The record is an 84-nucleotide RNA sequence from Homo sapiens, which matches "Y RNA" in Rfam. Rfam's curators put it in the seed alignment. Pairs were carried over by alignment from the consensus structure, which is taken from published work.
RNA sequence: AGUUGGUCCGAGUGUUGUGGGUUAUUGUUAAGUUGAUUUAACAUUGUCUCCCCCCACAACCGCGCUUGACUAGCUUGCUGUUUU
Numbered sequence: 001a002g003u004u005g006g007u008c009c010g011a012g013u014g015u016u017g018u019g020g021g022u023u024a025u026u027g028u029u030a031a032g033u034u035g036a037u038u039u040a041a042c043a044u045u046g047u048c049u050c051c052c053c054c055c056a057c058a059a060c061c062g063c064g065c066u067u068g069a070c071u072a073g074c075u076u077g078c079u080g081u082u083u084u
Stems, first nucleotide, its partner, number of pairs: 001075008010067002014063002016058006026043003030039002
Dot-bracket structure: ((((((((.((..((((((((....(((.((......)).))).........))))))...))..)))))))))).........